[Rfam]
RNA sequence: UCGAAACCGGGAGAUGGCAUUCCUCCUAGACCAAACCGCCGGCUUGUGCCCGGCUAAUGAUGCCUACGGUUCC
Numbered sequence: 001u002c003g004a005a006a007c008c009g010g011g012a013g014a015u016g017g018c019a020u021u022c023c024u025c026c027u028a029g030a031c032c033a034a035a036c037c038g039c040c041g042g043c044u045u046g047u048g049c050c051c052g053g054c055u056a057a058u059g060a061u062g063c064c065u066a067c068g069g070u071u072c073c
Stems, first nucleotide, its partner, number of pairs: 010026004016064006038054004
A member of the RNA family "Fluoride riboswitch aptamer (crcB RNA motif)" from Paraburkholderia eburnea, 73 nucleotides long. The match comes from Rfam's covariance-model search (51 bits). The base pairs follow the family's consensus structure, which is taken from published work. The source organism's lineage runs through Bacteria, Pseudomonadota, Betaproteobacteria, Burkholderiaceae and Paraburkholderia.